Background:
Shown here is a 70-nucleotide sequence from Endobacterium cereale, a member of the family "ybhL leader". Lineage of the source: Bacteria > Pseudomonadati > Pseudomonadota > Alphaproteobacteria > Endobacterium. Rfam describes the family as follows. This family is a putative regulatory RNA structure that is found upstream of an uncharacterized membrane protein in alpha-proteobacteria. The literature on the family includes a 2005 paper in Genome Biol by Corbino et al., "Evidence for a second class of S-adenosylmethionine riboswitches and other regulatory RNA motifs in alpha-proteobacteria".
RNA sequence: CAUGCUUGCUGAGGCUCCGCAGCGGCGCCCGGGAUUUUUCCCCGCACACCGAAGAUAUCUCGGAGCUUUU
Number, nucleotide and partner (000 for none) at each position: 001c000002a000003u000004g000005c000006u000007u000008g000009c000010u000011g000012a068013g067014g066015c065016u064017c063018c062019g061020c000021a000022g000023c051024g050025g049026c000027g000028c000029c000030c044031g043032g042033g041034a039035u000036u000037u000038u000039u034040c000041c033042c032043c031044g030045c000046a000047c000048a000049c025050c024051g023052a000053a000054g000055a000056u000057a000058u000059c000060u000061c019062g018063g017064a016065g015066c014067u013068u012069u000070u000